[Rfam]
RNA sequence: UGCCAGUCCAAGUGCAUUGGUAUUUACAACUAAUUGAUCAUAACCAGUUACAUAUUUAUUUGUUUCUUCUCCACUCCAGCAGCUUCAGUUGACUAGCCUCUA
Numbered sequence: 001u002g003c004c005a006g007u008c009c010a011a012g013u014g015c016a017u018u019g020g021u022a023u024u025u026a027c028a029a030c031u032a033a034u035u036g037a038u039c040a041u042a043a044c045c046a047g048u049u050a051c052a053u054a055u056u057u058a059u060u061u062g063u064u065u066c067u068u069c070u071c072c073a074c075u076c077c078a079g080c081a082g083c084u085u086c087a088g089u090u091g092a093c094u095a096g097c098c099u100c101u102a
Stems, first nucleotide, its partner, number of pairs: 002097002005094004010090002014086001017079004028064003032060002